[Rfam]
Rfam assigns this 100-nucleotide RNA sequence from Cohnella cholangitidis to the family "Purine riboswitch aptamer". From the family's description: Riboswitches are metabolite binding domains within certain messenger RNAs that serve as precision sensors for their corresponding targets. NCBI's taxonomy places the organism under Bacteria, Bacillati, Caryophanales, Paenibacillaceae, Cohnella.
RNA sequence: UGUUCAAUCUAUUCAUCCAUUCGUAUAUCCUCGGCAAUAUGGGCUGGGGGUCUCUACCGGGAACCUUAAAUUCCUGACUACGAAGGAUGUGGGACACCCA
Numbered sequence: 001u002g003u004u005c006a007a008u009c010u011a012u013u014c015a016u017c018c019a020u021u022c023g024u025a026u027a028u029c030c031u032c033g034g035c036a037a038u039a040u041g042g043g044c045u046g047g048g049g050g051u052c053u054c055u056a057c058c059g060g061g062a063a064c065c066u067u068a069a070a071u072u073c074c075u076g077a078c079u080a081c082g083a084a085g086g087a088u089g090u091g092g093g094a095c096a097c098c099c100a
Stems, first nucleotide, its partner, number of pairs: 018086001020084006029049007058076006